RNA sequence: CUUGCUUGGUGGCGCACUUGGUCAAUGACUUGGUGGGCUGAUGUGUGUCUCUGAAGAAACUUCAUCACAUUGUUUAAGCCCGCUCUCUUAGCGGGCUUUUUUGU
Numbered sequence: 001c002u003u004g005c006u007u008g009g010u011g012g013c014g015c016a017c018u019u020g021g022u023c024a025a026u027g028a029c030u031u032g033g034u035g036g037g038c039u040g041a042u043g044u045g046u047g048u049c050u051c052u053g054a055a056g057a058a059a060c061u062u063c064a065u066c067a068c069a070u071u072g073u074u075u076a077a078g079c080c081c082g083c084u085c086u087c088u089u090a091g092c093g094g095g096c097u098u099u100u101u102u103g104u
Stems, first nucleotide, its partner, number of pairs: 009042002012039001015035004020030004077097007